Small nucleolar RNA F1/F2/snoR5a: a 140-nucleotide sequence from Carex littledalei. Rfam classes the family as an H/ACA-box small nucleolar RNA. The family has 8 seed sequences and 325 matches in Rfam 15.1. Its family is annotated with nucleolus and RNA processing in the Gene Ontology. The base pairs follow the family's consensus structure, which was predicted with PFOLD. Rfam's curators write: This family contains F1, F2 and snoR5a sequences, all of which are members of the the H/ACA class of snoRNA that guide the sites of modification of uridines to pseudouridines.
RNA sequence: AAAUGCCAUGAGGUAUCUGGUACCUUGCUUAAAUUCAGUAGCUAGGUAUCUCGUAAGAUUGGCAGAUAAAAAUUUACAGUACUUGCGACACUGAUUGCUCCUUUUAUGAGCUUGCAGUUACUUUUGACCUGUUUACAUGU
Numbered sequence: 001a002a003a004u005g006c007c008a009u010g011a012g013g014u015a016u017c018u019g020g021u022a023c024c025u026u027g028c029u030u031a032a033a034u035u036c037a038g039u040a041g042c043u044a045g046g047u048a049u050c051u052c053g054u055a056a057g058a059u060u061g062g063c064a065g066a067u068a069a070a071a072a073u074u075u076a077c078a079g080u081a082c083u084u085g086c087g088a089c090a091c092u093g094a095u096u097g098c099u100c101c102u103u104u105u106a107u108g109a110g111c112u113u114g115c116a117g118u119u120a121c122u123u124u125u126g127a128c129c130u131g132u133u134u135a136c137a138u139g140u
Base pairs, nucleotide, nucleotide: 004064005063006062007061008060009058019050020049021048022047023046024045025044027042028041029040031039076132077131078130079129090118091117092116093115097111098110099109